[Rfam]
RNA: Bacterial RNase P class A
Organism: Streptomyces rubellomurinus
RNA sequence: AGAGCCGGCCGGGCGGUCGCGACGGGUCCCAGACCCGCCGAGGAACGUCCGGGCUCCACAGAGCAGGGUGGUGGGUAACGCCCACCCGGGGUGACCCGCGGGACAGUGCCACAGAAAACAGACCGCCCACCGCUCCGGCGCGUGGGUAAGGGUGAAACGGUGGUGUAAGAGACCACCAGCGACCGGGGUGACCCGGCCGGCUAGGUAAACCCCACCUGGAGCAAGGUCAAGAUCGGUGCCCUCGGGCACCGUGCGCGGACGCUUGAAGGCUGCUCGCCCGAGUCCGCGGGUGGACCGCACGAGGCUGUCGGCAACGGCAGCCCUAGAUGGAUGGCCGCCUCCCCGGGCCGCGCGAGCACCCCGGGAGACAGAACCCGGCGUACAGGCCGACUCUUCCG
Numbered sequence: 001a002g003a004g005c006c007g008g009c010c011g012g013g014c015g016g017u018c019g020c021g022a023c024g025g026g027u028c029c030c031a032g033a034c035c036c037g038c039c040g041a042g043g044a045a046c047g048u049c050c051g052g053g054c055u056c057c058a059c060a061g062a063g064c065a066g067g068g069u070g071g072u073g074g075g076u077a078a079c080g081c082c083c084a085c086c087c088g089g090g091g092u093g094a095c096c097c098g099c100g101g102g103a104c105a106g107u108g109c110c111a112c113a114g115a116a117a118a119c120a121g122a123c124c125g126c127c128c129a130c131c132g133c134u135c136c137g138g139c140g141c142g143u144g145g146g147u148a149a150g151g152g153u154g155a156a157a158c159g160g161u162g163g164u165g166u167a168a169g170a171g172a173c174c175a176c177c178a179g180c181g182a183c184c185g186g187g188g189u190g191a192c193c194c195g196g197c198c199g200g201c202u203a204g205g206u207a208a209a210c211c212c213c214a215c216c217u218g219g220a221g222c223a224a225g226g227u228c229a230a231g232a233u234c235g236g237u238g239c240c241c242u243c244g245g246g247c248a249c250c251g252u253g254c255g256c257g258g259a260c261g262c263u264u265g266a267a268g269g270c271u272g273c274u275c276g277c278c279c280g281a282g283u284c285c286g287c288g289g290g291u292g293g294a295c296c297g298c299a300c301g302a303g304g305c306u307g308u309c310g311g312c313a314a315c316g317g318c319a320g321c322c323c324u325a326g327a328u329g330g331a332u333g334g335c336c337g338c339c340u341c342c343c344c345g346g347g348c349c350g351c352g353c354g355a356g357c358a359c360c361c362c363g364g365g366a367g368a369c370a371g372a373a374c375c376c377g378g379c380g381u382a383c384a385g386g387c388c389g390a391c392u393c394u395u396c397c398g
Base pairs, nucleotide, nucleotide: 001394002393003392004391006389007388008387009386010385011383012339013338014337015336016335017334018333020040021039023037024036025035026034027033028032045381046380047379049378050377051376052375053374054221055220056219057218061275062274063273064272066217067216068215069214070213071085072084073083074082075081086100087098088097089096090095101212102211106210107209108206109205110204123151124150125147126146127145128144129143130142131140132139133138159177160176161175162174163173164172179201180199181198183196184195185194186193187192225296226295227294228293255287256286257285258284259283260282268278269277270276303322304321305320306319307318308317309316310315